[Rfam]
RNA sequence: AUCGUUCAUCUCUCUUAAAAACACUCUUCACCGGAUGCUGAGAGAGACGGAAGUAAGGAAAUAUCCAGAAGGAACGCACG
Numbered sequence: 001a002u003c004g005u006u007c008a009u010c011u012c013u014c015u016u017a018a019a020a021a022c023a024c025u026c027u028u029c030a031c032c033g034g035a036u037g038c039u040g041a042g043a044g045a046g047a048c049g050g051a052a053g054u055a056a057g058g059a060a061a062u063a064u065c066c067a068g069a070a071g072g073a074a075c076g077c078a079c080g
Stems, first nucleotide, its partner, number of pairs: 003076005009047009050077001057066002
A member of the RNA family "Glutamine riboswitch aptamer (glnA leader)" from Chroococcidiopsis thermalis, 80 nucleotides long. Taxonomically the source falls in Chroococcidiopsis thermalis (Bacteria, Cyanophyceae, Chroococcidiopsidales, Chroococcidiopsidaceae). On this family, see Ren et al., Cell Rep 2015: "Structural and Dynamic Basis for Low-Affinity, High-Selectivity Binding of L-Glutamine by the Glutamine Riboswitch".